[Rfam]
RNA: PAGEV RNA
RNA sequence: CCUAUUUUGGACUCAAGAUGUUUUGGAAUAGGUCGGGACCGUGUUACCAAUCAAGGAUAUUUGCUAAGGUAACCCAUAAGGCACUUCUUGCAUAAAGUAAAAGUCGCAAGCUUAUUGUCGUUUUGACUGCGGGAUUUGAAUUUUAUAAUGCAGAAGGUGGCGCGUUUGGAGCAAGGGUGGAUAUAUUUAUUAUAUCUGGUAACGCGCAGGGCGU
Numbered sequence: 001c002c003u004a005u006u007u008u009g010g011a012c013u014c015a016a017g018a019u020g021u022u023u024u025g026g027a028a029u030a031g032g033u034c035g036g037g038a039c040c041g042u043g044u045u046a047c048c049a050a051u052c053a054a055g056g057a058u059a060u061u062u063g064c065u066a067a068g069g070u071a072a073c074c075c076a077u078a079a080g081g082c083a084c085u086u087c088u089u090g091c092a093u094a095a096a097g098u099a100a101a102a103g104u105c106g107c108a109a110g111c112u113u114a115u116u117g118u119c120g121u122u123u124u125g126a127c128u129g130c131g132g133g134a135u136u137u138g139a140a141u142u143u144u145a146u147a148a149u150g151c152a153g154a155a156g157g158u159g160g161c162g163c164g165u166u167u168g169g170a171g172c173a174a175g176g177g178u179g180g181a182u183a184u185a186u187u188u189a190u191u192a193u194a195u196c197u198g199g200u201a202a203c204g205c206g207c208a209g210g211g212c213g214u
Base pairs, nucleotide, nucleotide: 001032002031003030004029005028006027007026043073044072045071046070047069048068060174061173083158084157085156086155088153089152090151091150092149160207161206162205163204164203165202179197180196181195182194183193